RNA: THF (Tetrahydrofolate) riboswitch aptamer
RNA sequence: CGCAGAGUAGGAUAUUAUUUGUUAAAACCCUUCGAACGGGGAGUUGUCGAAGAGGGCAAAGUUUUUUACUGCUUAUAGUAUCCGCAUCCCGCUGCU
Numbered sequence: 001c002g003c004a005g006a007g008u009a010g011g012a013u014a015u016u017a018u019u020u021g022u023u024a025a026a027a028c029c030c031u032u033c034g035a036a037c038g039g040g041g042a043g044u045u046g047u048c049g050a051a052g053a054g055g056g057c058a059a060a061g062u063u064u065u066u067u068a069c070u071g072c073u074u075a076u077a078g079u080a081u082c083c084g085c086a087u088c089c090c091g092c093u094g095c096u
Stems, first nucleotide, its partner, number of pairs: 002095004010083009021072002028054001030052006039089003043085001060070003